[Rfam]
RNA sequence: CCCCUUGGCAAUGGGCAAAGAGACACCUUACUGAUGAUGGUGACCUAUCAGUCAAAGGCAGAGCAAACAACAGUCCUUUGUUCAUCCUAGCUUGAUGUCUGGCUUGGUGGCCAGGGCUGUUUCAUGCCUAGGGUACAUAA
Numbered sequence: 001c002c003c004c005u006u007g008g009c010a011a012u013g014g015g016c017a018a019a020g021a022g023a024c025a026c027c028u029u030a031c032u033g034a035u036g037a038u039g040g041u042g043a044c045c046u047a048u049c050a051g052u053c054a055a056a057g058g059c060a061g062a063g064c065a066a067a068c069a070a071c072a073g074u075c076c077u078u079u080g081u082u083c084a085u086c087c088u089a090g091c092u093u094g095a096u097g098u099c100u101g102g103c104u105u106g107g108u109g110g111c112c113a114g115g116g117c118u119g120u121u122u123c124a125u126g127c128c129u130a131g132g133g134u135a136c137a138u139a140a
Stems, first nucleotide, its partner, number of pairs: 002058002005055003012050003019046002022041001024039002027036001079135005094128001096126001100124003105119002108116001

Record summary:
Small nucleolar RNA SNORA48: a 140-nucleotide RNA sequence from Fukomys damarensis. About the family: The snoRNA ACA 48 has been identified to guide pseudouridylation of the residue U3797 in the 28S rRNA subunit. It scores 54 bits against the family's covariance model. Lineage of the source: Eukaryota > Opisthokonta > Vertebrata > Mammalia > Fukomys. Gene Ontology terms of the family: nucleolus and RNA processing. Its Rfam clan is "SNORA48 clan". It is annotated as an H/ACA-box small nucleolar RNA. On this family, see Ofengand and Bakin, J Mol Biol 1997: "Mapping to nucleotide resolution of pseudouridine residues in large subunit ribosomal RNAs from representative eukaryotes, prokaryotes, archaebacteria, mitochondria and chloroplasts".